[Rfam]
The record is a 68-nucleotide RNA sequence from Ramlibacter ginsenosidimutans, which matches "ilvH RNA" in Rfam. Rfam classes the family as a cis-regulatory element.
RNA sequence: GACGAAUCUAUUGACCGCCGAGCCUGCUGCUUACCGGCAGCGGGGGAGGGCGGCGAAAAGAGGAAUCA
Numbered sequence: 001g002a003c004g005a006a007u008c009u010a011u012u013g014a015c016c017g018c019c020g021a022g023c024c025u026g027c028u029g030c031u032u033a034c035c036g037g038c039a040g041c042g043g044g045g046g047a048g049g050g051c052g053g054c055g056a057a058a059a060g061a062g063g064a065a066u067c068a
Base pairs, nucleotide, nucleotide: 011056012055013054015053016052017051018050019049023044024043025042026041027040028039029038030037031036